[Rfam]
RNA sequence: GUAUCAGUAAUGGUAUAGAUGAAGGAAGUGGUGUAGCAAAGUUCUUGAGCCUACGUACAGAAACUUGAUAAGGCGAUGAGGUGGGUAAGGUUGCUAGACAAACCAAAGCCCCAAAGGUAAACGUAUAACCGAAGUUGUAAAUCAAGAGGUUGUGGAACGAAAGAUGAGUGU
Numbered sequence: 001g002u003a004u005c006a007g008u009a010a011u012g013g014u015a016u017a018g019a020u021g022a023a024g025g026a027a028g029u030g031g032u033g034u035a036g037c038a039a040a041g042u043u044c045u046u047g048a049g050c051c052u053a054c055g056u057a058c059a060g061a062a063a064c065u066u067g068a069u070a071a072g073g074c075g076a077u078g079a080g081g082u083g084g085g086u087a088a089g090g091u092u093g094c095u096a097g098a099c100a101a102a103c104c105a106a107a108g109c110c111c112c113a114a115a116g117g118u119a120a121a122c123g124u125a126u127a128a129c130c131g132a133a134g135u136u137g138u139a140a141a142u143c144a145a146g147a148g149g150u151u152g153u154g155g156a157a158c159g160a161a162a163g164a165u166g167a168g169u170g171u
Base pairs, nucleotide, nucleotide: 001016002015003014004013005012006011028171029170030169032167037163041158042157043156044155047153048151049150050149051148052147064146065145066144067143068142073138074137075136077133080130081129082128083111084110085109086108089104090103091102092101
This 171-nucleotide RNA from Clostridiales bacterium 1_7_47FAA belongs to the Rfam family "Group II catalytic intron D1-D4-3".
For this family Rfam cites "The ins and outs of group II introns" (Bonen and Vogel, Trends Genet, 2001).